Rfam assigns this 112-nucleotide RNA from Paenibacillus ginsengarvi to the family "epsC RNA".
[Rfam]
RNA sequence: GGGUGAUGCCGAUUGUACCCUUAUCAUAUUCGGCUCUCGACCGUGCUGUGGGCUUGUGAGCCUUAGACGUGGAUCGUCAAGGGUGCGGUGAGGGUACGGGGUUUGAAUCCCC
Numbered sequence: 001g002g003g004u005g006a007u008g009c010c011g012a013u014u015g016u017a018c019c020c021u022u023a024u025c026a027u028a029u030u031c032g033g034c035u036c037u038c039g040a041c042c043g044u045g046c047u048g049u050g051g052g053c054u055u056g057u058g059a060g061c062c063u064u065a066g067a068c069g070u071g072g073a074u075c076g077u078c079a080a081g082g083g084u085g086c087g088g089u090g091a092g093g094g095u096a097c098g099g100g101g102u103u104u105g106a107a108u109c110c111c112c
Stems, first nucleotide, its partner, number of pairs: 001020004008034005036094003040089008050063005066078004098112004
The family's consensus secondary structure is taken from published work. It is annotated as a cis-regulatory element. Rfam 15.1 lists 450 matches to the family in 334 species. It scores 65 bits against the family's covariance model.